A member of the RNA family "Small nucleolar RNA Z112" from Panicum hallii, 189 nucleotides long. The family has 6 seed sequences and 427 matches in Rfam 15.1.
[Rfam]
RNA sequence: GUCCCAGUGAUGAUCCUGAGACCUACCGAUAGGAAGUGCCGUUUGACACUGUUACCAGCAGCUGCUUCUCUCAUCUGCAGGUGUCCAUCCUUAGAGCAUAACCUUUGUGGUUUGGUCUGGAGUGGAGUUCCCAUCUGCAGAUGUUUGAUUCAGAUGUGGUGUGUGAUUUAAAUCGGGUCUCUGAGGGAU
Numbered sequence: 001g002u003c004c005c006a007g008u009g010a011u012g013a014u015c016c017u018g019a020g021a022c023c024u025a026c027c028g029a030u031a032g033g034a035a036g037u038g039c040c041g042u043u044u045g046a047c048a049c050u051g052u053u054a055c056c057a058g059c060a061g062c063u064g065c066u067u068c069u070c071u072c073a074u075c076u077g078c079a080g081g082u083g084u085c086c087a088u089c090c091u092u093a094g095a096g097c098a099u100a101a102c103c104u105u106u107g108u109g110g111u112u113u114g115g116u117c118u119g120g121a122g123u124g125g126a127g128u129u130c131c132c133a134u135c136u137g138c139a140g141a142u143g144u145u146u147g148a149u150u151c152a153g154a155u156g157u158g159g160u161g162u163g164u165g166a167u168u169u170a171a172a173u174c175g176g177g178u179c180u181c182u183g184a185g186g187g188a189u
Stems, first nucleotide, its partner, number of pairs: 001189005075140009084126005090120001094117002097114002100112004
Its Rfam clan is "SNORD49 clan". Lineage of the source: Eukaryota > Spermatophyta > commelinids > Panicodae > Panicum hallii. The base pairs follow the family's consensus structure, which was predicted with PFOLD. A reference for the family is Liang et al. (2002), "A novel gene organization: intronic snoRNA gene clusters from Oryza sativa", Nucleic Acids Res. The family's RNA type in Rfam is C/D-box small nucleolar RNA.